[Rfam]
RNA sequence: UCGAAGUUCCAUCUACAAAUGGAUAAGAACCGAUCUUAGUGUAUAGUAGUUAUUGAAAAAAAAAAGAAAUAAAGGAGAAAUAACGCCCUCUUGAUAGAACAAGAAAGAGUUUAUUUCUCCUUUAUU
Numbered sequence: 001u002c003g004a005a006g007u008u009c010c011a012u013c014u015a016c017a018a019a020u021g022g023a024u025a026a027g028a029a030c031c032g033a034u035c036u037u038a039g040u041g042u043a044u045a046g047u048a049g050u051u052a053u054u055g056a057a058a059a060a061a062a063a064a065a066g067a068a069a070u071a072a073a074g075g076a077g078a079a080a081u082a083a084c085g086c087c088c089u090c091u092u093g094a095u096a097g098a099a100c101a102a103g104a105a106a107g108a109g110u111u112u113a114u115u116u117c118u119c120c121u122u123u124a125u126u
Stems, first nucleotide, its partner, number of pairs: 008023005060123003074120010089104004
Dot-bracket structure: .......(((((......)))))....................................(((...........((((((((((.....((((........))))......)))))))))))))...
Background:
The family of this 126-nucleotide RNA is "Plastid-psbA-1 3UTR RNA". Pairs were carried over by alignment from the consensus structure, which was predicted with LocARNA. Rfam's curators write: Plastid psbA-1 is a non-coding RNA (ncRNA) present in plastids. It was identified in inverted repeat sequences in the 3 prime untranslate region (3UTR) of photosystem II quinone-binding protein (psbA).